Shown here is a 183-nucleotide RNA sequence from Saccharothrix violaceirubra, a member of the family "Actinobacteria sRNA Ms_IGR-5".
A reference for the family is Li et al. (2013), "Identification of small RNAs in Mycobacterium smegmatis using heterologous Hfq", RNA.
The base pairs follow the family's consensus structure.
The organism belongs to Saccharothrix, within Bacteria.
RNA sequence: ACACGAGAGAGGAGGUGGUCCAAAGUUGUGUAGCAACAGGACUCGUCGUGAGGUGGCUGUCCGCUAGGGCCGCAUUUCUCAAGGCGGCCCGGUGAAAUCCAGGCGGCCUCCCGACCCCCGUGACCCCGAGCACAGUCCGGCUCGGCCCGCCGCAGGCGGGAAAAGGUCCGGGGGUCGCUUCAC
Numbered sequence: 001a002c003a004c005g006a007g008a009g010a011g012g013a014g015g016u017g018g019u020c021c022a023a024a025g026u027u028g029u030g031u032a033g034c035a036a037c038a039g040g041a042c043u044c045g046u047c048g049u050g051a052g053g054u055g056g057c058u059g060u061c062c063g064c065u066a067g068g069g070c071c072g073c074a075u076u077u078c079u080c081a082a083g084g085c086g087g088c089c090c091g092g093u094g095a096a097a098u099c100c101a102g103g104c105g106g107c108c109u110c111c112c113g114a115c116c117c118c119c120g121u122g123a124c125c126c127c128g129a130g131c132a133c134a135g136u137c138c139g140g141c142u143c144g145g146c147c148c149g150c151c152g153c154a155g156g157c158g159g160g161a162a163a164a165g166g167u168c169c170g171g172g173g174g175u176c177g178c179u180u181c182a183c
Stems, first nucleotide, its partner, number of pairs: 014061006062094004067089002070087004075082002112177009122167001124165001126145006
Source information: A search with the family's covariance model found it, with a score of 84 bits. Rfam classes the family as a small RNA.